[Rfam]
RNA sequence: GCUGGUCCGGUUCACGUCCCCCGCUGGGGGGCGACCCGGCGCC
Numbered sequence: 001g002c003u004g005g006u007c008c009g010g011u012u013c014a015c016g017u018c019c020c021c022c023g024c025u026g027g028g029g030g031g032c033g034a035c036c037c038g039g040c041g042c043c
Base pairs, nucleotide, nucleotide: 004043005042007039008038009037010036015033016032017031018030019029020028021027022026
L31-Actinobacteria ribosomal protein leader: a 43-nucleotide RNA from Marmoricola sp. Leaf446.
Pairs were carried over by alignment from the consensus structure, which is taken from published work.
The match comes from Rfam's covariance-model search (44 bits).